[Rfam]
RNA: c-di-GMP-I riboswitch aptamer
RNA sequence: ACAAUAAAUGGGCAAACCUAGGGACGCAAAGCUUGAGUCUACGGUUAUCUCAAAGAUAAUUACGAUCGUUCAGCUGCAUAG
Dot-bracket structure: ...........((...(....)...))..((((.(((((....((((((.....))))))...)))...))))))......
Numbered sequence: 001a002c003a004a005u006a007a008a009u010g011g012g013c014a015a016a017c018c019u020a021g022g023g024a025c026g027c028a029a030a031g032c033u034u035g036a037g038u039c040u041a042c043g044g045u046u047a048u049c050u051c052a053a054a055g056a057u058a059a060u061u062a063c064g065a066u067c068g069u070u071c072a073g074c075u076g077c078a079u080a081g
Stems, first nucleotide, its partner, number of pairs: 012027002017022001030075004035071002037066003044060006